[Rfam]
RNA sequence: GGAAGCAUAGCUCAGCUGGGAUGAGCGUUCGCCUCACACGCGAGAGGUCAGGGGUUCGAGCCCCCUUGCUUCCA
Numbered sequence: 001g002g003a004a005g006c007a008u009a010g011c012u013c014a015g016c017u018g019g020g021a022u023g024a025g026c027g028u029u030c031g032c033c034u035c036a037c038a039c040g041c042g043a044g045a046g047g048u049c050a051g052g053g054g055u056u057c058g059a060g061c062c063c064c065c066u067u068g069c070u071u072c073c074a
Stems, first nucleotide, its partner, number of pairs: 001073007010026004028044005050066005

Rfam assigns this 74-nucleotide sequence from Blautia faecicola to the family "tRNA". Its family is annotated with triplet codon-amino acid adaptor activity in the Gene Ontology. The organism belongs to Blautia, within Bacteria.